[Rfam]
RNA sequence: CAGUGUUCUAGCUCUUUUAGAAUUUGUCUGGCAGGCUUUCUGGUUUUUGCUGGGAAACCACC
Number, nucleotide and partner (000 for none) at each position: 001c000002a000003g000004u000005g000006u000007u000008c000009u000010a000011g000012c000013u000014c000015u000016u000017u000018u000019a000020g000021a000022a000023u000024u000025u000026g000027u000028c000029u000030g000031g000032c000033a000034g059035g058036c000037u056038u055039u054040c053041u052042g051043g050044u049045u000046u000047u000048u000049g044050c043051u042052g041053g040054g039055a038056a037057a000058c035059c034060a000061c000062c000

A member of the RNA family "U7 small nuclear RNA" from Saimiri boliviensis, 62 nucleotides long. Taxonomically the source falls in Saimiri boliviensis (Eukaryota, Teleostomi, Platyrrhini, Cebidae).